[Rfam]
RNA: RNase E 5' UTR element
Nucleotides: 340
Base pairs, nucleotide, nucleotide: 006031008029009028010027011026012025053107054106055105056104058102059101063097064096065095070091071090072089075082076081114331115330116329117328118327119326120325121324122323123322124321132309133308134307135306136305137304138303146180147179148178149177152172153171154170155169156168189218190217191216193215194214195213198210199209200208201207219296220295221294222293223292234289235288236287237286238285248267249266251264252263253262254261255260
Number, partner (000 for none) and nucleotide at each position: 001000g002000u003000u004000u005000c006031u007000g008029u009028c010027c011026u012025g013000g014000a015000a016000a017000g018000a019000g020000u021000c022000a023000g024000g025012c026011a027010g028009g029008a030000a031006a032000a033000a034000g035000a036000g037000c038000g039000a040000a041000a042000u043000u044000a045000a046000g047000g048000u049000a050000u051000u052000u053107u054106g055105c056104c057000g058102g059101a060000u061000g062000a063097a064096a065095c066000u067000g068000a069000c070091a071090c072089g073000c074000a075082g076081c077000a078000a079000u080000g081076g082075c083000g084000u085000a086000a087000g088000a089072c090071g091070u092000g093000a094000u095065g096064u097063u098000u099000a100000a101059u102058c103000a104056g105055g106054c107053a108000c109000u110000u111000a112000g113000c114331g115330g116329g117328c118327u119326g120325c121324g122323g123322g124321u125000u126000g127000c128000g129000g130000c131000c132309u133308g134307g135306a136305c137304g138303a139000c140000a141000g142000a143000c144000u145000a146180g147179g148178a149177u150000g151000u152172g153171u154170g155169g156168a157000u158000u159000u160000c161000u162000g163000a164000a165000u166000a167000c168156u169155c170154u171153g172152u173000a174000g175000c176000a177149a178148u179147u180146c181000c182000a183000c184000c185000u186000u187000c188000a189218g190217g191216c192000g193215c194214u195213g196000g197000u198210u199209u200208u201207c202000c203000u204000u205000a206000u207201g208200a209199a210198a211000a212000a213195c214194a215193g216191g217190c218189c219296a220295c221294c222293g223292a224000c225000a226000a227000g228000a229000u230000u231000u232000g233000c234289g235288c236287c237286u238285c239000u240000u241000u242000a243000g244000c245000c246000g247000a248267c249266g250000a251264c252263a253262a254261c255260c256000g257000u258000g259000a260255g261254g262253u263252u264251g265000a266249c267248g268000u269000c270000a271000g272000u273000g274000c275000a276000u277000u278000a279000a280000g281000a282000c283000a284000c285238g286237a287236g288235g289234c290000c291000a292223u293222c294221g295220g296219u297000u298000g299000a300000u301000u302000c303138u304137c305136g306135u307134c308133c309132a310000u311000g312000g313000g314000u315000a316000a317000c318000g319000a320000u321124g322123c323122c324121c325120g326119c327118a328117g329116c330115u331114u332000u333000a334000u335000c336000a337000c338000u339000c340000a